A member of the RNA family "Pseudomonas sRNA P24" from Pseudomonas taeanensis, 252 nucleotides long. The literature on the family includes a 2006 paper in Nucleic Acids Res by Livny et al., "Identification of 17 Pseudomonas aeruginosa sRNAs and prediction of sRNA-encoding genes in 10 diverse pathogens using the bioinformatic tool sRNAPredict2". The organism belongs to Pseudomonas taeanensis, within Bacteria. Pairs were carried over by alignment from the consensus structure, which was predicted with RNAalifold. About the family: This small RNA (sRNA) was computationally identified in the genome of the opportunistic pathogen Pseudomonas aeruginosa and its expression verified by Northern blot analysis. P24 is conserved across several Pseudomonas species and in Azotobacter vinelandii. It appears to be consistently located between a hypothetical protein gene and a transcriptional regulator gene (AsnC family) in the genomes of all these species. P24 has a predicted Rho independent terminator at the 3' end but the function of P24 is unknown.
[Rfam]
RNA sequence: UUGCGCAAGUGAUAGAUUUUUCAGCAAUGUUAGCAAUCUUCUGUCGCGCCCGUGCACGUAAGCUUUACCUCAGUUUCACGGCCCGGACGACAUGUCCAACCGGCUCGCCCAAUCAGGUGAACGGAAGCCGCCGAUCCUACCGGAUCGUCACGGCACCCGGGUCCGCACUGCCCAACCAGGCAGGCGAAGAAAGCGGCGACAGCAUUGCCAGCACAGGACACUGAUCGAAAAGGGAGGCCGAGAGGCCUCCCU
Numbered sequence: 001u002u003g004c005g006c007a008a009g010u011g012a013u014a015g016a017u018u019u020u021u022c023a024g025c026a027a028u029g030u031u032a033g034c035a036a037u038c039u040u041c042u043g044u045c046g047c048g049c050c051c052g053u054g055c056a057c058g059u060a061a062g063c064u065u066u067a068c069c070u071c072a073g074u075u076u077c078a079c080g081g082c083c084c085g086g087a088c089g090a091c092a093u094g095u096c097c098a099a100c101c102g103g104c105u106c107g108c109c110c111a112a113u114c115a116g117g118u119g120a121a122c123g124g125a126a127g128c129c130g131c132c133g134a135u136c137c138u139a140c141c142g143g144a145u146c147g148u149c150a151c152g153g154c155a156c157c158c159g160g161g162u163c164c165g166c167a168c169u170g171c172c173c174a175a176c177c178a179g180g181c182a183g184g185c186g187a188a189g190a191a192a193g194c195g196g197c198g199a200c201a202g203c204a205u206u207g208c209c210a211g212c213a214c215a216g217g218a219c220a221c222u223g224a225u226c227g228a229a230a231a232g233g234g235a236g237g238c239c240g241a242g243a244g245g246c247c248u249c250c251c252u
Stems, first nucleotide, its partner, number of pairs: 001012004043057002076192001079189001081162004085097004101124001103122001107118003127154004133146005164186003168183005193212002195209005231252004236247004